[Rfam]
RNA sequence: ACACGGACAGUUACGGUACAACCUGGUAAGUGCUGUAACACUUAUCAGGCUGUAUCAUAACGGCCUAUGUC
Numbered sequence: 001a002c003a004c005g006g007a008c009a010g011u012u013a014c015g016g017u018a019c020a021a022c023c024u025g026g027u028a029a030g031u032g033c034u035g036u037a038a039c040a041c042u043u044a045u046c047a048g049g050c051u052g053u054a055u056c057a058u059a060a061c062g063g064c065c066u067a068u069g070u071c
Stems, first nucleotide, its partner, number of pairs: 013058001015056006023048003027044006
mir-374 microRNA precursor family: a 71-nucleotide sequence from Pteropus vampyrus. The organism belongs to Pteropus, within Eukaryota. For this family Rfam cites "Patterns of known and novel small RNAs in human cervical cancer" (Lui et al., Cancer Res, 2007). Gene Ontology terms of the family: miRNA-mediated post-transcriptional gene silencing and RISC complex.